[Rfam]
RNA sequence: ACCGGUCACGCGACUGGCGCAGCGAAGGUGGAACCGACCACCGGGGAGCGACCACCGACGUGCGCCGCGCGCCUGGGUGCACCGU
Numbered sequence: 001a002c003c004g005g006u007c008a009c010g011c012g013a014c015u016g017g018c019g020c021a022g023c024g025a026a027g028g029u030g031g032a033a034c035c036g037a038c039c040a041c042c043g044g045g046g047a048g049c050g051a052c053c054a055c056c057g058a059c060g061u062g063c064g065c066c067g068c069g070c071g072c073c074u075g076g077g078u079g080c081a082c083c084g085u
Base pairs, nucleotide, nucleotide: 002057004055009050010049011048014045015044016073017072018071019070020069028041029040030039031038062080063079064078065077066076

ZMP/ZTP riboswitch aptamer (pfl RNA motif): an 85-nucleotide sequence from Micromonospora sp. Llam0. The base pairs follow the family's consensus structure, which is taken from published work. The organism belongs to Micromonospora, within Bacteria.